Shown here is a 48-nucleotide RNA sequence from Isoptericola dokdonensis, a member of the family "L31-Actinobacteria ribosomal protein leader". The family's RNA type in Rfam is cis-regulatory leader. The family's consensus secondary structure is taken from published work.

RNA sequence: UCGGCUUCCGGUUCACGGCUCGCGGUCCUGUGAGGCGACCCGGAGGCA
Numbered sequence: 001u002c003g004g005c006u007u008c009c010g011g012u013u014c015a016c017g018g019c020u021c022g023c024g025g026u027c028c029u030g031u032g033a034g035g036c037g038a039c040c041c042g043g044a045g046g047c048a
Base pairs, nucleotide, nucleotide: 004047006046008043009042010041011040016037017036019034020033021032022031023030024029